RNA sequence: UGUGUAUGAACCAUUUGAAUCAAGCAGUGUAGUGAUUCACAUGGUUCUUGCCG
Dot-bracket structure: ...(((.(((((((.(((((((..........))))))).))))))).)))..
The family of this 53-nucleotide RNA sequence from Camellia sinensis is "Plastid-ccsA-ndhD-2 3UTR RNA". It scores 59 bits against the family's covariance model. Rfam's curators write: Plastid ccsA-ndhD-2 is a non-coding RNA (ncRNA) recognised in plastids. It was found in the three prime untranslated region (3UTR) of ccsA and ndhD genes, its 3UTR location suggests a role in transcript maturation.